Rfam assigns this 183-nucleotide RNA from Oryzias javanicus to the family "Small nucleolar RNA SNORA81". Pairs were carried over by alignment from the consensus structure, which was predicted with WAR.
RNA sequence: CCCUUCUCUUUAAAGCACCCUGUUGGAACUGCAGGAGUGGAACCGCAGCGGUUUGGCUCGUGUGGCUGUGUCAGCAUGGGUACAUCAGGGAAGGAGAUCAGAGCACUGCAUCGUAAACGAGACCAGGAAGGGCCUCUUUCUUAAUGUCCGCUUUCCUCCGUCUCUUGGUGCAGUGCUACAUUU
Numbered sequence: 001c002c003c004u005u006c007u008c009u010u011u012a013a014a015g016c017a018c019c020c021u022g023u024u025g026g027a028a029c030u031g032c033a034g035g036a037g038u039g040g041a042a043c044c045g046c047a048g049c050g051g052u053u054u055g056g057c058u059c060g061u062g063u064g065g066c067u068g069u070g071u072c073a074g075c076a077u078g079g080g081u082a083c084a085u086c087a088g089g090g091a092a093g094g095a096g097a098u099c100a101g102a103g104c105a106c107u108g109c110a111u112c113g114u115a116a117a118c119g120a121g122a123c124c125a126g127g128a129a130g131g132g133c134c135u136c137u138u139u140c141u142u143a144a145u146g147u148c149c150g151c152u153u154u155c156c157u158c159c160g161u162c163u164c165u166u167g168g169u170g171c172a173g174u175g176c177u178a179c180a181u182u183u
Stems, first nucleotide, its partner, number of pairs: 018080002021076005028069002031066001035059001037057002040054005102177009125154001127152001130149003

For this family Rfam cites "A novel experimental approach for systematic identification of box H/ACA snoRNAs from eukaryotes" (Gu et al., Nucleic Acids Res, 2005).
Rfam 15.1 lists 1,161 matches to the family in 643 species.
Gene Ontology terms of the family: nucleolus and RNA processing.